[Rfam]
The record is a 141-nucleotide RNA sequence from Caproicibacter fermentans, which matches "Ribosomal protein L10 leader" in Rfam. It is annotated as a cis-regulatory leader. About the family: This family is a putative r-protein leader autoregulatory structure found in B. subtilis and other low-GC Gram-positive bacteria.

RNA sequence: CAAUAGUUUUUUCUUUAUUCAAAGACAGCAGGCGCUGUAUGCUUAAUGGAUUUUCCGGCCUGCCGAGAAUAAGGUUCGAUAUGCAUUUGUGUGUUGAAGGCCUUUUCUGCGGCAGCGGGAAAGGCCUUUUACGUUGCGUGU
Numbered sequence: 001c002a003a004u005a006g007u008u009u010u011u012u013c014u015u016u017a018u019u020c021a022a023a024g025a026c027a028g029c030a031g032g033c034g035c036u037g038u039a040u041g042c043u044u045a046a047u048g049g050a051u052u053u054u055c056c057g058g059c060c061u062g063c064c065g066a067g068a069a070u071a072a073g074g075u076u077c078g079a080u081a082u083g084c085a086u087u088u089g090u091g092u093g094u095u096g097a098a099g100g101c102c103u104u105u106u107c108u109g110c111g112g113c114a115g116c117g118g119g120a121a122a123g124g125c126c127u128u129u130u131a132c133g134u135u136g137c138g139u140g141u
Stems, first nucleotide, its partner, number of pairs: 028063006034042002099126012